[Rfam]
Nucleotides: 133
Stems, first nucleotide, its partner, number of pairs: 003062006018044008072126004084114002088110001089108007
Number, partner (000 for none) and nucleotide at each position: 001000u002000u003062g004061c005060a006059u007058g008057u009000g010000g011000a012000a013000a014000u015000a016000u017000g018044u019043c020042u021041g022040c023039u024038c025037c026000u027000c028000a029000u030000u031000c032000c033000u034000u035000u036000g037025g038024g039023a040022g041021c042020a043019g044018g045000a046000a047000u048000a049000c050000c051000u052000c053000c054000a055000u056000a057008a058007c059006a060005u061004g062003c063000u064000a065000c066000a067000u068000g069000a070000a071000a072126g073125g074124a075123g076000u077000u078000c079000u080000c081000a082000g083000g084114g085113c086000u087000g088110c089108c090107a091106a092105c093104c094103u095102u096000a097000c098000a099000g100000u101000a102095g103094a104093g105092g106091u107090u108089g109000a110088g111000u112000a113085g114084u115000a116000g117000u118000a119000u120000a121000u122000u123075u124074u125073c126072c127000u128000a129000c130000a131000u132000a133000g
The record is a 133-nucleotide sequence from Cnephaeus nilssonii, which matches "Small nucleolar RNA U109" in Rfam. A reference for the family is Reddy et al. (1981), "Pseudouridine residues in the 5'-terminus of uridine-rich nuclear RNA I (U1 RNA)", Biochem Biophys Res Commun. Pairs were carried over by alignment from the consensus structure, which was predicted with WAR. The family's RNA type in Rfam is H/ACA-box small nucleolar RNA. A search with the family's covariance model found it, with a score of 138 bits.